[Rfam]
RNA sequence: GUAACCUGCCCGGCAAAGGUUGGCAACCAGCCGGAACCGAGUGUUGCGUGGUACAGGGGUGACCCUGGCUGCGAAGCGUACACAGGGAGUCCCCAGGCCGUGUGAUUGAGCCCCGAAAGGAGAUAUAUCCCGAGGCCGACGUGGUUUUCUGAGCGGAAGGCAGCAUGGUCGGUGCCGCAACAGCCUGGCACGGACCACUCGGCGGGGUCGUAGAGCA
Number, nucleotide and partner (000 for none) at each position: 001g000002u000003a000004a000005c000006c000007u000008g000009c000010c034011c033012g032013g031014c000015a000016a000017a000018g028019g027020u026021u000022g185023g184024c183025a000026a020027c019028c018029a000030g000031c013032c012033g011034g010035a000036a000037c086038c085039g000040a000041g083042u082043g081044u080045u078046g077047c073048g072049u071050g070051g069052u000053a000054c067055a066056g065057g064058g063059g000060u000061g000062a000063c058064c057065c056066u055067g054068g000069c051070u050071g049072c048073g047074a000075a000076g000077c046078g045079u000080a044081c043082a042083c041084a000085g038086g037087g000088a000089g000090u000091c000092c000093c000094c000095a000096g000097g000098c000099c000100g000101u000102g000103u000104g000105a000106u000107u000108g209109a000110g208111c207112c206113c205114c204115g203116a000117a000118a000119g000120g000121a000122g000123a000124u000125a000126u000127a000128u000129c202130c201131c000132g200133a199134g198135g161136c160137c159138g000139a000140c155141g154142u153143g000144g000145u000146u000147u000148u000149c000150u000151g000152a000153g142154c141155g140156g000157a000158a000159g137160g136161c135162a000163g000164c000165a000166u197167g196168g195169u194170c193171g000172g191173u190174g189175c188176c187177g000178c000179a000180a000181c000182a000183g024184c023185c022186u000187g176188g175189c174190a173191c172192g000193g170194a169195c168196c167197a166198c134199u133200c132201g130202g129203c115204g114205g113206g112207g111208u110209c108210g000211u000212a000213g000214a000215g000216c000217a000